About this RNA: Mammalian CPEB3 ribozyme: a 71-nucleotide RNA sequence from Alligator mississippiensis. The base pairs follow the family's consensus structure, which is taken from published work. The organism belongs to Alligator, within Eukaryota.

RNA sequence: CCUGGACUUGAGGGCCAGAGCAGAAGCAUUCACUUCACAACCCUUGUCAGGUAAUACCUGCAAAUUCUGCU
Numbered sequence: 001c002c003u004g005g006a007c008u009u010g011a012g013g014g015c016c017a018g019a020g021c022a023g024a025a026g027c028a029u030u031c032a033c034u035u036c037a038c039a040a041c042c043c044u045u046g047u048c049a050g051g052u053a054a055u056a057c058c059u060g061c062a063a064a065u066u067c068u069g070c071u
Base pairs, nucleotide, nucleotide: 011044012043013042014041019071020070021069022068023067024066025065026038048060049059050058051057052056